[Rfam]
RNA sequence: GGUUAUUGAGUUGUAAGUUGGGUCAGUGUCCAGUUUGCAAGGAGACCUACAAAGGUUUUGAGUUUACCAUAGGCUGACUUAGGUAUAGGCAUAUACUGAAAGAAAACUUAUAUU
Numbered sequence: 001g002g003u004u005a006u007u008g009a010g011u012u013g014u015a016a017g018u019u020g021g022g023u024c025a026g027u028g029u030c031c032a033g034u035u036u037g038c039a040a041g042g043a044g045a046c047c048u049a050c051a052a053a054g055g056u057u058u059u060g061a062g063u064u065u066a067c068c069a070u071a072g073g074c075u076g077a078c079u080u081a082g083g084u085a086u087a088g089g090c091a092u093a094u095a096c097u098g099a100a101a102g103a104a105a106a107c108u109u110a111u112a113u114u
Stems, first nucleotide, its partner, number of pairs: 001047004011040011023077004060109003082097006
The family of this 114-nucleotide RNA sequence from [Clostridium] fimetarium is "drum RNA".
It scores 70 bits against the family's covariance model.
The source organism's lineage runs through Bacteria, Bacillati, Clostridia, Lachnospirales and Lachnoclostridium.
From the family's description: Firmicutes, Bacteroidetes (1 example), Proteobacteria (2 examples), Spirochaetes (2 examples).